[Rfam]
RNA sequence: AUUCCUUCCGUCAUGUAUCUCUGAUUGAUGCAGCCUCAGAUGUUCCA
Numbered sequence: 001a002u003u004c005c006u007u008c009c010g011u012c013a014u015g016u017a018u019c020u021c022u023g024a025u026u027g028a029u030g031c032a033g034c035c036u037c038a039g040a041u042g043u044u045c046c047a
Stems, first nucleotide, its partner, number of pairs: 010025004032044003